[Rfam]
Record summary:
SAM riboswitch aptamer (S box leader): a 104-nucleotide RNA sequence from Clostridium botulinum. Pairs were carried over by alignment from the consensus structure, which is taken from published work. A reference for the family is Grundy and Henkin (1998), "The S box regulon: a new global transcription termination control system for methionine and cysteine biosynthesis genes in gram-positive bacteria", Mol Microbiol. It is one of the family's seed sequences.

RNA sequence: UACUUAUCAAGAGAGGCGGAGGGACUGGCCCUGUGAAGCCCAGCAACCUAUAUGAAAGUGAAUAUAAGGUGCUAAAUCCUGCAGCAUAAGCUGAGAGAUGAGGA
Dot-bracket structure: (.((((((....(.(((...(((.[.[[)))......))))((((.((((((..........)))).))))))...(]].]((((....))))..))))))).)
Numbered sequence: 001u002a003c004u005u006a007u008c009a010a011g012a013g014a015g016g017c018g019g020a021g022g023g024a025c026u027g028g029c030c031c032u033g034u035g036a037a038g039c040c041c042a043g044c045a046a047c048c049u050a051u052a053u054g055a056a057a058g059u060g061a062a063u064a065u066a067a068g069g070u071g072c073u074a075a076a077u078c079c080u081g082c083a084g085c086a087u088a089a090g091c092u093g094a095g096a097g098a099u100g101a102g103g104a
Stems, first nucleotide, its partner, number of pairs: 001104001003102006013041001015040003021031003025081001027079002042073004047069002049066004077096001082093004